[Rfam]
RNA: COG3860 RNA
RNA sequence: CGGUCGGCAGUUCACCCAGGCGUUGUCGCGCGACACAUUCGCGAGCUAAACCUGCCA
Numbered sequence: 001c002g003g004u005c006g007g008c009a010g011u012u013c014a015c016c017c018a019g020g021c022g023u024u025g026u027c028g029c030g031c032g033a034c035a036c037a038u039u040c041g042c043g044a045g046c047u048a049a050a051c052c053u054g055c056c057a
Base pairs, nucleotide, nucleotide: 002016003015004014029043030042031041032040